Overview:
This 35-nucleotide sequence from Myotis lucifugus belongs to the Rfam family "Iron response element I". Its family is annotated with response to iron ion in the Gene Ontology. Lineage of the source: Eukaryota > Deuterostomia > Chordata > Mammalia > Myotis.
RNA sequence: UUAUCUCUGGCUUCAACAGUGUUUGGACAGAACAC
Numbered sequence: 001u002u003a004u005c006u007c008u009g010g011c012u013u014c015a016a017c018a019g020u021g022u023u024u025g026g027a028c029a030g031a032a033c034a035c
Stems, first nucleotide, its partner, number of pairs: 002034001004032001006031003010028001012027005017021001
It scores 34 bits against the family's covariance model.